[Rfam]
RNA sequence: GCAGACAAUACUCUGUUCUCUGCUGCUCACUCCAGCCCAGAACUUUUUAUGUCUGCUAAAUUAACACACAGAAUGUAACAACUCGCUGGCCUACUGUUAGGCUAAUGUUGGUAUGUUCUGGCACACUUAG
Numbered sequence: 001g002c003a004g005a006c007a008a009u010a011c012u013c014u015g016u017u018c019u020c021u022g023c024u025g026c027u028c029a030c031u032c033c034a035g036c037c038c039a040g041a042a043c044u045u046u047u048u049a050u051g052u053c054u055g056c057u058a059a060a061u062u063a064a065c066a067c068a069c070a071g072a073a074u075g076u077a078a079c080a081a082c083u084c085g086c087u088g089g090c091c092u093a094c095u096g097u098u099a100g101g102c103u104a105a106u107g108u109u110g111g112u113a114u115g116u117u118c119u120g121g122c123a124c125a126c127u128u129a130g
Stems, first nucleotide, its partner, number of pairs: 001056006015043005023035003069120004073114002076110005083104001085102003
Small nucleolar RNA SNORA77: a 130-nucleotide RNA from Oncorhynchus kisutch. The base pairs follow the family's consensus structure, which was predicted with RNAalifold. Lineage of the source: Eukaryota > Opisthokonta > Teleostomi > Clupeocephala > Oncorhynchus. A search with the family's covariance model found it, with a score of 45 bits. Rfam 15.1 lists 843 matches to the family in 607 species. Rfam classes the family as an H/ACA-box small nucleolar RNA.